[Rfam]
Nucleotides: 054
Stems, first nucleotide, its partner, number of pairs: 013043001014041003020036006
Number, partner (000 for none) and nucleotide at each position: 001000g002000g003000a004000u005000a006000a007000a008000a009000c010000c011000u012000a013043u014041g015040u016039a017000a018000g019000u020036u021035g022034c023033u024032c025031u026000g027000g028000a029000u030000a031025a032024g033023a034022g035021c036020a037000u038000c039016u040015g041014c042000u043013g044000a045000a046000u047000g048000a049000c050000a051000g052000u053000g054000a
The family of this 54-nucleotide RNA from Megalops atlanticus is "UnaL2 LINE 3' element". The family's RNA type in Rfam is cis-regulatory element. Rfam describes the family as follows. The eel long interspersed element (LINE) UnaL2 and its partner short interspersed element (SINE) share a conserved 3' tail containing a stem-loop that is critical for their retrotransposition. Presumably, the first step of retrotransposition is the recognition of their 3' tails by UnaL2-encoded reverse transcriptase.